The record is a 137-nucleotide RNA from Danionella cerebrum, which matches "Small nucleolar RNA SNORD10" in Rfam. On this family, see Huttenhofer et al., EMBO J 2001: "RNomics: an experimental approach that identifies 201 candidates for novel, small, non-messenger RNAs in mouse". Taxonomically the source falls in Danionella (Eukaryota, Bilateria, Gnathostomata, Ostariophysi). A search with the family's covariance model found it, with a score of 70 bits. Rfam classes the family as a C/D-box small nucleolar RNA. Its family is annotated with nucleolus and RNA processing in the Gene Ontology.
[Rfam]
Nucleotides: 137
Base pairs, nucleotide, nucleotide: 001137002136003135004134042102043101044100045099046098047097049095
Number, partner (000 for none) and nucleotide at each position: 001137g002136u003135u004134u005000c006000a007000u008000g009000a010000u011000g012000a013000u014000c015000c016000c017000c018000a019000u020000g021000c022000g023000u024000g025000u026000c027000a028000g029000c030000u031000g032000a033000u034000c035000u036000g037000a038000g039000g040000g041000u042102u043101c044100c045099u046098g047097u048000u049095g050000u051000g052000c053000u054000c055000a056000g057000u058000g059000u060000c061000u062000g063000a064000u065000g066000g067000g068000c069000g070000u071000u072000u073000u074000g075000c076000u077000c078000a079000a080000c081000a082000g083000u084000g085000c086000a087000u088000u089000u090000u091000g092000a093000g094000c095049c096000u097047g098046c099045a100044g101043g102042a103000c104000c105000c106000u107000c108000a109000g110000a111000a112000c113000a114000u115000g116000a117000u118000c119000u120000u121000g122000a123000c124000u125000u126000u127000a128000g129000u130000c131000u132000g133000a134004a135003a136002a137001c